[Rfam]
RNA sequence: AUUCGACUUCAGGGCGGGGUGUAAUUCCCCACCGGUGGUAUUUUCACGUUAUGAAUUUGUAUCAGUGAAACAGCCCACGAGCGCCUAAUAGGAUGAGUUAUUAUUAUAUUAGGGUCAGCAGAUUUGGUGAGAGGCCAAAGCCGACGGUUAUAGUCCGGAUGGAAGAAGAUCGAGA
Numbered sequence: 001a002u003u004c005g006a007c008u009u010c011a012g013g014g015c016g017g018g019g020u021g022u023a024a025u026u027c028c029c030c031a032c033c034g035g036u037g038g039u040a041u042u043u044u045c046a047c048g049u050u051a052u053g054a055a056u057u058u059g060u061a062u063c064a065g066u067g068a069a070a071c072a073g074c075c076c077a078c079g080a081g082c083g084c085c086u087a088a089u090a091g092g093a094u095g096a097g098u099u100a101u102u103a104u105u106a107u108a109u110u111a112g113g114g115u116c117a118g119c120a121g122a123u124u125u126g127g128u129g130a131g132a133g134g135c136c137a138a139a140g141c142c143g144a145c146g147g148u149u150a151u152a153g154u155c156c157g158g159a160u161g162g163a164a165g166a167a168g169a170u171c172g173a174g175a
Stems, first nucleotide, its partner, number of pairs: 003173004007168004017029003031154002033143002035078004073141002081119002123139005145157003